[Rfam]
RNA sequence: GUGAUGCAUUUCGAGUGGACGUCUUGCGUCCAGCCAACCUGCCUUACCGGGCAAGGUGGAGUCCCCACGGGGAGAUGCGGCCUUCGGCAACGAAACGGCGCCUG
Numbered sequence: 001g002u003g004a005u006g007c008a009u010u011u012c013g014a015g016u017g018g019a020c021g022u023c024u025u026g027c028g029u030c031c032a033g034c035c036a037a038c039c040u041g042c043c044u045u046a047c048c049g050g051g052c053a054a055g056g057u058g059g060a061g062u063c064c065c066c067a068c069g070g071g072g073a074g075a076u077g078c079g080g081c082c083u084u085c086g087g088c089a090a091c092g093a094a095a096c097g098g099c100g101c102c103u104g
Stems, first nucleotide, its partner, number of pairs: 006078005017031005034059002038056003041052003045100001047098003080088003

A member of the RNA family "SAM-I/IV (S-adenosyl methionine) riboswitch aptamer" from Candidatus Viadribacter manganicus, 104 nucleotides long. The base pairs follow the family's consensus structure, which is taken from published work. Rfam links the family to the GO terms S-adenosylmethionine metabolic process and regulation of gene expression. The match comes from Rfam's covariance-model search (46 bits). Clan: SAM clan.